[Rfam]
RNA sequence: CCUGCCACCAGGCUGUGCUCCAUGGGGCUGCAGAGCCCUAUGGAGCCCAGCCUGGUGGCAGGAAGCAGAGCGCACACCUGGCUCUGCCCACCUCCCACUGUUGGUCUGGCAGAAUCGAUCAGAGCACACCCU
Numbered sequence: 001c002c003u004g005c006c007a008c009c010a011g012g013c014u015g016u017g018c019u020c021c022a023u024g025g026g027g028c029u030g031c032a033g034a035g036c037c038c039u040a041u042g043g044a045g046c047c048c049a050g051c052c053u054g055g056u057g058g059c060a061g062g063a064a065g066c067a068g069a070g071c072g073c074a075c076a077c078c079u080g081g082c083u084c085u086g087c088c089c090a091c092c093u094c095c096c097a098c099u100g101u102u103g104g105u106c107u108g109g110c111a112g113a114a115u116c117g118a119u120c121a122g123a124g125c126a127c128a129c130c131c132u
Stems, first nucleotide, its partner, number of pairs: 002061013018045004023040006068129001070127001072125002075122001079117003083113004087108001
Small nucleolar RNA SNORA17: a 132-nucleotide RNA from Alligator mississippiensis. On this family, see Ofengand and Bakin, J Mol Biol 1997: "Mapping to nucleotide resolution of pseudouridine residues in large subunit ribosomal RNAs from representative eukaryotes, prokaryotes, archaebacteria, mitochondria and chloroplasts". By type it is an H/ACA-box small nucleolar RNA. The source organism's lineage runs through Eukaryota, Tetrapoda, Sauria, Archosauria and Alligator. From the family's description: snoRNA ACA 17 belongs to the H/ACA family of snoRNAs and is predicted to guide pseudouridylation of the 28S rRNA at positions U4659 and U4598. It shares the same host gene together with ACA43. NB This family has a high threshold value to exclude a large number of closely related sequences that do not appear to have conserved H and ACA boxes, and may be pseudogenes. The family has 53 seed sequences and 5,784 matches in Rfam 15.1. The base pairs follow the family's consensus structure, which was predicted with RNAalifold.